Shown here is an 86-nucleotide RNA sequence from Schistosoma margrebowiei, a member of the family "Selenocysteine transfer RNA".
[Rfam]
RNA sequence: AUUGGGGUGAACCUCGGUGGUCCGGGGUGCAGGCUUCAAACCUGUAGCCGACUAGCGUAGGAGCGGUACGAUUCCGCCUUCCUGAU
Number, nucleotide and partner (000 for none) at each position: 001a086002u085003u084004g083005g082006g081007g080008u000009g078010a000011a000012c027013c026014u025015c024016g023017g022018u000019g000020g000021u000022c017023c016024g015025g014026g013027g012028u046029g045030c044031a043032g042033g041034c000035u000036u000037c000038a000039a000040a000041c033042c032043u031044g030045u029046a028047g000048c061049c060050g000051a058052c057053u000054a000055g000056c000057g052058u051059a000060g049061g048062a000063g077064c076065g075066g074067u000068a000069c000070g000071a000072u000073u000074c066075c065076g064077c063078c009079u000080u007081c006082c005083u004084g003085a002086u001

The organism belongs to Schistosoma, within Eukaryota. Its Rfam clan is "tRNA clan". A search with the family's covariance model found it, with a score of 64 bits.